A member of the RNA family "SAM riboswitch aptamer (S box leader)" from Acetohalobium arabaticum, 116 nucleotides long.
From the family's description: The SAM riboswitch is found upstream of a number of genes which code for proteins involved in methionine or cysteine biosynthesis in Gram-positive bacteria.
Its family is annotated with regulation of gene expression in the Gene Ontology.
[Rfam]
Nucleotides: 116
Stems, first nucleotide, its partner, number of pairs: 001116008013041001015040003021031003025086001027084002042078004047074002050069006082108001087105006
Number, partner (000 for none) and nucleotide at each position: 001116c002115u003114c004113u005112u006111a007110u008109c009000a010000a011000g012000a013041g014000u015040g016039g017038u018000g019000g020000a021031g022030g023029g024000a025086c026000u027084g028083g029023c030022c031021c032000g033000a034000u035000g036000a037000a038017g039016c040015c041013c042078g043077g044076c045075a046000a047074c048073c049000a050069u051068c052067c053066u054065u055064g056000g057000c058000u059000a060000u061000a062000g063000c064055c065054a066053g067052g068051g069050a070000a071000g072000u073048g074047g075045u076044g077043c078042c079000a080000a081000c082108u083028c084027c085000u086025g087105c088104a089103a090102u091101g092100u093000u094000g095000c096000a097000a098000u099000g100092a101091c102090a103089u104088u105087g106000a107000a108082a109008g110007a111006u112005a113004a114003g115002a116001g